[Rfam]
RNA: Eukaryotic large subunit ribosomal RNA, nucleotides 431 to 870
Organism: Strongylocentrotus purpuratus
RNA sequence: CGGGCAGGACCCGCGGCACGGGUCCGUGGAGAUUCAGCGUGUCGGCUGUCGUCCCGGGCAUGGCCUCGGAUCCGCAAGGACCGGACCGGCUCGGGUGGCGGCGGUCGGCGCGUGCACUUCUCCCGGACGCGGCGCUCGGGACCGGCAGCUCAGGUCGGCCGAAGGCACCGGCGCAGGUAGCUCCGCCUUGGCCUUUGUGCCUCUGCGGAGAACUAAUAGCGUCGGUCGCAACGCCGACCGGGCUGCCGAGGAAGGGACGCGAGCCGCGCCCGCCUCCCCUCGUGGGGGGCUGCGCCUCCCGUCCCCCGCAGGCCUCCCCGGCGUUCACUGUUCUCAGUGGUCGCUGAGGGACGGCAAGCGGCGGGUGCGGUGAGGCGGCACGUGGCGCCUCGGGUCGCCGAGCGAAGCUGGGCGCCUGCUCGACCCGUCUUGAAACACGG
Numbered sequence: 001c002g003g004g005c006a007g008g009a010c011c012c013g014c015g016g017c018a019c020g021g022g023u024c025c026g027u028g029g030a031g032a033u034u035c036a037g038c039g040u041g042u043c044g045g046c047u048g049u050c051g052u053c054c055c056g057g058g059c060a061u062g063g064c065c066u067c068g069g070a071u072c073c074g075c076a077a078g079g080a081c082c083g084g085a086c087c088g089g090c091u092c093g094g095g096u097g098g099c100g101g102c103g104g105u106c107g108g109c110g111c112g113u114g115c116a117c118u119u120c121u122c123c124c125g126g127a128c129g130c131g132g133c134g135c136u137c138g139g140g141a142c143c144g145g146c147a148g149c150u151c152a153g154g155u156c157g158g159c160c161g162a163a164g165g166c167a168c169c170g171g172c173g174c175a176g177g178u179a180g181c182u183c184c185g186c187c188u189u190g191g192c193c194u195u196u197g198u199g200c201c202u203c204u205g206c207g208g209a210g211a212a213c214u215a216a217u218a219g220c221g222u223c224g225g226u227c228g229c230a231a232c233g234c235c236g237a238c239c240g241g242g243c244u245g246c247c248g249a250g251g252a253a254g255g256g257a258c259g260c261g262a263g264c265c266g267c268g269c270c271c272g273c274c275u276c277c278c279c280u281c282g283u284g285g286g287g288g289g290c291u292g293c294g295c296c297u298c299c300c301g302u303c304c305c306c307c308g309c310a311g312g313c314c315u316c317c318c319c320g321g322c323g324u325u326c327a328c329u330g331u332u333c334u335c336a337g338u339g340g341u342c343g344c345u346g347a348g349g350g351a352c353g354g355c356a357a358g359c360g361g362c363g364g365g366u367g368c369g370g371u372g373a374g375g376c377g378g379c380a381c382g383u384g385g386c387g388c389c390u391c392g393g394g395u396c397g398c399c400g401a402g403c404g405a406a407g408c409u410g411g412g413c414g415c416c417u418g419c420u421c422g423a424c425c426c427g428u429c430u431u432g433a434a435a436c437a438c439g440g
Stems, first nucleotide, its partner, number of pairs: 001422008011412002019129001022128005028122001133404007425440004